Overview
Archaeal small subunit ribosomal RNA: a 521-nucleotide part of an RNA from Acidianus brierleyi. Gene Ontology terms of the family: structural constituent of ribosome and ribosome.

RNA sequence: AUUCCGGUUGAUCCUGCCGGACCAGAUCGCUAUGGGGAUAGGGCUAAGCCAUGGGAGUCGUACGCUCUCGGUAAGAGGGCGUGGCGGACGGCUGAGUAACACGUGGUCAACCUAACCUCGGGACUUGGAUACCUCCGGGAAACUGGAGCUAAUCCAAGAUAGGCAAAGGAAUCUGGAACGAUCCUUUGCUUAAAGGCCUCUAGGCUAAUACUGUCUAGAGGUGCCCGAGGAUGGGACUGCGGCCCAUCAGGCUGUUGGUGGGGUAAUGGCCCACCAAACCGAUAACGGGUAGGGGCCGUGGGAGCGGGAGCCCCCAGUUGGGCACUGAGACAAUGGCCCAGGCUACGGGGCGCACCAGGCGCGAAACGUCCCCAAUGCGGGAAACCGUGAGGGCGCUAUCCCCAGUGCCUCCGAUAGGAGGCUUUUCCCCACUUUAGAACGGUGGGGGAAUAAGCGGGGGGCAAGGCUGGUGUCAGCCGCCGCGGUAAUACCAGCCCCGCGAGUGAUCUGGACGUUUAUUG
Numbered sequence: 001a002u003u004c005c006g007g008u009u010g011a012u013c014c015u016g017c018c019g020g021a022c023c024a025g026a027u028c029g030c031u032a033u034g035g036g037g038a039u040a041g042g043g044c045u046a047a048g049c050c051a052u053g054g055g056a057g058u059c060g061u062a063c064g065c066u067c068u069c070g071g072u073a074a075g076a077g078g079g080c081g082u083g084g085c086g087g088a089c090g091g092c093u094g095a096g097u098a099a100c101a102c103g104u105g106g107u108c109a110a111c112c113u114a115a116c117c118u119c120g121g122g123a124c125u126u127g128g129a130u131a132c133c134u135c136c137g138g139g140a141a142a143c144u145g146g147a148g149c150u151a152a153u154c155c156a157a158g159a160u161a162g163g164c165a166a167a168g169g170a171a172u173c174u175g176g177a178a179c180g181a182u183c184c185u186u187u188g189c190u191u192a193a194a195g196g197c198c199u200c201u202a203g204g205c206u207a208a209u210a211c212u213g214u215c216u217a218g219a220g221g222u223g224c225c226c227g228a229g230g231a232u233g234g235g236a237c238u239g240c241g242g243c244c245c246a247u248c249a250g251g252c253u254g255u256u257g258g259u260g261g262g263g264u265a266a267u268g269g270c271c272c273a274c275c276a277a278a279c280c281g282a283u284a285a286c287g288g289g290u291a292g293g294g295g296c297c298g299u300g301g302g303a304g305c306g307g308g309a310g311c312c313c314c315c316a317g318u319u320g321g322g323c324a325c326u327g328a329g330a331c332a333a334u335g336g337c338c339c340a341g342g343c344u345a346c347g348g349g350g351c352g353c354a355c356c357a358g359g360c361g362c363g364a365a366a367c368g369u370c371c372c373c374a375a376u377g378c379g380g381g382a383a384a385c386c387g388u389g390a391g392g393g394c395g396c397u398a399u400c401c402c403c404a405g406u407g408c409c410u411c412c413g414a415u416a417g418g419a420g421g422c423u424u425u426u427c428c429c430c431a432c433u434u435u436a437g438a439a440c441g442g443u444g445g446g447g448g449a450a451u452a453a454g455c456g457g458g459g460g461g462c463a464a465g466g467c468u469g470g471u472g473u474c475a476g477c478c479g480c481c482g483c484g485g486u487a488a489u490a491c492c493a494g495c496c497c498c499g500c501g502a503g504u505g506a507u508c509u510g511g512a513c514g515u516u517u518a519u520u521g
Stems, first nucleotide, its partner, number of pairs: 004020005022511010033404009042362001048360003052357003057085003062082007092317003102241007111234002116230007124158004133148006163189008172181002196222010243289003250280002255277008292314004296307004319340005342351002368394001370393003376389005407422006427447007454500006467494004476483002